Rfam assigns this 52-nucleotide sequence to the family "algC RNA". The family's consensus secondary structure is taken from published work.

RNA sequence: AUCAAUUUGGCUAUUUAGUGGCCAGGGCCAACUGUUGCCUGAAAAAGGGGUC
Numbered sequence: 001a002u003c004a005a006u007u008u009g010g011c012u013a014u015u016u017a018g019u020g021g022c023c024a025g026g027g028c029c030a031a032c033u034g035u036u037g038c039c040u041g042a043a044a045a046a047g048g049g050g051u052c
Base pairs, nucleotide, nucleotide: 009023010022011021012020013019